[Rfam]
RNA sequence: UUCUAGAAUGUUGUAGCUAUUGAACUGUUUUGUUGCUCUCUGUAAGAAAUAACAAAUUAUUCUUUGACAGAGAGGGACAAAACAGUUCAAUAGCUAAAGCGUUCUAUAAC
Number, nucleotide and partner (000 for none) at each position: 001u109002u108003c000004u106005a105006g104007a000008a000009u000010g000011u099012u098013g000014u096015a095016g094017c093018u092019a091020u090021u089022g088023a087024a086025c085026u084027g083028u082029u071030u070031u069032g068033u067034u066035g065036c000037u000038c000039u000040c000041u000042g000043u000044a000045a000046g000047a000048a000049a000050u000051a061052a060053c000054a058055a000056a000057u000058u054059a000060u052061u051062c000063u000064u000065u035066g034067a033068c032069a031070g030071a029072g000073a000074g000075g000076g000077a000078c000079a000080a000081a000082a028083c027084a026085g025086u024087u023088c022089a021090a020091u019092a018093g017094c016095u015096a014097a000098a012099g011100c000101g000102u000103u000104c006105u005106a004107u000108a002109a001110c000
The family of this 110-nucleotide sequence from Plutella xylostella is "mir-8517 microRNA precursor family". The source organism's lineage runs through Eukaryota, Bilateria, Allotriocarida, Endopterygota and Plutella. The base pairs follow the family's consensus structure, which was predicted with RNAalifold. Gene Ontology terms of the family: miRNA-mediated post-transcriptional gene silencing and RISC complex.